This 92-nucleotide sequence from Chara braunii belongs to the Rfam family "Small nucleolar RNA snR60/Z15/Z230/Z193/J17". The match comes from Rfam's covariance-model search (49 bits). The organism belongs to Chara, within Eukaryota. The pairing is the family consensus, mapped onto this sequence. A reference for the family is Tycowski et al. (2004), "Guide RNAs with 5' caps and novel box C/D snoRNA-like domains for modification of snRNAs in metazoa", Curr Biol. Gene Ontology terms of the family: nucleolus and RNA processing.
[Rfam]
RNA sequence: AUACGGCAGAUGAUGAUCCUGUAGUUCAUCUGAGCUGCUGUGGCUAUGAAAUUAUUCAUGCUAUAGUGUCUCGCUCCUAUCUGAUGUCGAAC
Numbered sequence: 001a002u003a004c005g006g007c008a009g010a011u012g013a014u015g016a017u018c019c020u021g022u023a024g025u026u027c028a029u030c031u032g033a034g035c036u037g038c039u040g041u042g043g044c045u046a047u048g049a050a051a052u053u054a055u056u057c058a059u060g061c062u063a064u065a066g067u068g069u070c071u072c073g074c075u076c077c078u079a080u081c082u083g084a085u086g087u088c089g090a091a092c
Stems, first nucleotide, its partner, number of pairs: 004089005